[Rfam]
RNA: tRNA
Organism: Herbidospora galbida
RNA sequence: UCCCCGUUCGUCCAAUCGGCAGGACGCCAGAUUUUGGCUCUGGUAAUGGAGGUUCGAACCCUCCAUGGGGAG
Number, nucleotide and partner (000 for none) at each position: 001u071002c070003c069004c068005c067006g066007u065008u000009c000010g025011u024012c023013c022014a000015a000016u000017c000018g000019g000020c000021a000022g013023g012024a011025c010026g000027c043028c042029a041030g040031a039032u000033u000034u000035u000036g000037g000038c000039u031040c030041u029042g028043g027044u000045a000046a000047u000048g064049g063050a062051g061052g060053u000054u000055c000056g000057a000058a000059c000060c052061c051062u050063c049064c048065a007066u006067g005068g004069g003070g002071a001072g000